Description: Shown here is a 133-nucleotide sequence from Capsicum baccatum, a member of the family "Small nucleolar RNA snoR74". It scores 87 bits against the family's covariance model.
[Rfam]
RNA sequence: AAAAAAGCAGUGAUCUGUUGCCUUACUUUGUGAAUGGAUCUCUCGUAAACUCAGGGAUAUUAUAAUUGCAUUGUUAUUGGGUGAACCACUUGACCCCUCAUGAUGGAAUGGUUCAGUAAACAAUGAAACAUAC
Numbered sequence: 001a002a003a004a005a006a007g008c009a010g011u012g013a014u015c016u017g018u019u020g021c022c023u024u025a026c027u028u029u030g031u032g033a034a035u036g037g038a039u040c041u042c043u044c045g046u047a048a049a050c051u052c053a054g055g056g057a058u059a060u061u062a063u064a065a066u067u068g069c070a071u072u073g074u075u076a077u078u079g080g081g082u083g084a085a086c087c088a089c090u091u092g093a094c095c096c097c098u099c100a101u102g103a104u105g106g107a108a109u110g111g112u113u114c115a116g117u118a119a120a121c122a123a124u125g126a127a128a129c130a131u132a133c
Stems, first nucleotide, its partner, number of pairs: 006051002012040001014038006067127001069125007082115007

For this family Rfam cites "Experimental RNomics: identification of 140 candidates for small non-messenger RNAs in the plant Arabidopsis thaliana" (Marker et al., Curr Biol, 2002). It is annotated as an H/ACA-box small nucleolar RNA.